[Rfam]
RNA sequence: CGGGAAAGAAGCGCCAGUUGAGCUUGACUCUAGUUUGACAUUGUGAAAGGACAUAGGGGUGUAGAAUAUGUGGGAGCUUCGGCGCCAGUGAAUACCACAACCCUUAUAGUUUUUUUUACUUAAAUAAUCAAGUGGGAGAAGGCUUCACGGCCUAUCUUCUAGCGUUAAGCAGUCUUCGGGCUGCGACCCAUGUUAUUGACAUUGUCAAGUGGGGAGUUUGGCUGGGGCGGCACAUCUGUUAAACGAUAACGCAGGUGUCCUAAGGGGAGCUCAACGAGAACAGAAAUCUCGUGUAGAGCAAAAGGGCAAAAGCUCCCUUGAUUUUGAUUUUCAGCGUGAAUACGAACCAUGAAAGUGUGGCCUAUCGAUCCUUUAUGCCAUUUCCUUAGGAUUUAAGGCGCCAGAAAAGUUACCACAGGGAUAACUGGCUUGUGGCAGCCAAGCGUUCAUAGCGACGUUGCUUUUUGAUUCUUCGAUGUCGGCUCUUCCUAUCAUACAGAAGCAGAAUUCUGUAAGCGUUGGAUUGUUCACCCACUAAUAGGGAACGUGAGCUGGGUUUAGACCGUCGUGAGACAGGUUAGUUUUACCCUA
Numbered sequence: 001c002g003g004g005a006a007a008g009a010a011g012c013g014c015c016a017g018u019u020g021a022g023c024u025u026g027a028c029u030c031u032a033g034u035u036u037g038a039c040a041u042u043g044u045g046a047a048a049g050g051a052c053a054u055a056g057g058g059g060u061g062u063a064g065a066a067u068a069u070g071u072g073g074g075a076g077c078u079u080c081g082g083c084g085c086c087a088g089u090g091a092a093u094a095c096c097a098c099a100a101c102c103c104u105u106a107u108a109g110u111u112u113u114u115u116u117u118a119c120u121u122a123a124a125u126a127a128u129c130a131a132g133u134g135g136g137a138g139a140a141g142g143c144u145u146c147a148c149g150g151c152c153u154a155u156c157u158u159c160u161a162g163c164g165u166u167a168a169g170c171a172g173u174c175u176u177c178g179g180g181c182u183g184c185g186a187c188c189c190a191u192g193u194u195a196u197u198g199a200c201a202u203u204g205u206c207a208a209g210u211g212g213g214g215a216g217u218u219u220g221g222c223u224g225g226g227g228c229g230g231c232a233c234a235u236c237u238g239u240u241a242a243a244c245g246a247u248a249a250c251g252c253a254g255g256u257g258u259c260c261u262a263a264g265g266g267g268a269g270c271u272c273a274a275c276g277a278g279a280a281c282a283g284a285a286a287u288c289u290c291g292u293g294u295a296g297a298g299c300a301a302a303a304g305g306g307c308a309a310a311a312g313c314u315c316c317c318u319u320g321a322u323u324u325u326g327a328u329u330u331u332c333a334g335c336g337u338g339a340a341u342a343c344g345a346a347c348c349a350u351g352a353a354a355g356u357g358u359g360g361c362c363u364a365u366c367g368a369u370c371c372u373u374u375a376u377g378c379c380a381u382u383u384c385c386u387u388a389g390g391a392u393u394u395a396a397g398g399c400g401c402c403a404g405a406a407a408a409g410u411u412a413c414c415a416c417a418g419g420g421a422u423a424a425c426u427g428g429c430u431u432g433u434g435g436c437a438g439c440c441a442a443g444c445g446u447u448c449a450u451a452g453c454g455a456c457g458u459u460g461c462u463u464u465u466u467g468a469u470u471c472u473u474c475g476a477u478g479u480c481g482g483c484u485c486u487u488c489c490u491a492u493c494a495u496a497c498a499g500a501a502g503c504a505g506a507a508u509u510c511u512g513u514a515a516g517c518g519u520u521g522g523a524u525u526g527u528u529c530a531c532c533c534a535c536u537a538a539u540a541g542g543g544a545a546c547g548u549g550a551g552c553u554g555g556g557u558u559u560a561g562a563c564c565g566u567c568g569u570g571a572g573a574c575a576g577g578u579u580a581g582u583u584u585u586a587c588c589c590u591a
Base pairs, nucleotide, nucleotide: 002590003589004588006585007584014419015418017416019415020414021411022410023409024408025407027217028216029215030214034209035208036207037206038205039204040203043119044118045116046115047114048113049112050111051110052109053107054106055104056103057102058101069099070098071097072096073095076083077082123197124196125195126194127193133190134189135188136187141152142151143150144149169184170183171182172181173180220233221231222230223229234256235255236254237253238252239251259360260359265317266316267315268314269313270312271297272296274292275291276290277289278288279287298307299306322346323345324344327341328340329339330338348357349356350355371397372396373395375393378390379389428469430467432466434462435461436460437459438458439457443453444452480555481553482552483551484550485547486544487543488542489541490540493518496513497512498511499510500509501508520534521533522532524530561579562578563577564576565574566573567572
Eukaryotic large subunit ribosomal RNA: a 591-nucleotide part of an RNA. The base pairs follow the family's consensus structure, which is taken from published work. Rfam's curators put it in the seed alignment.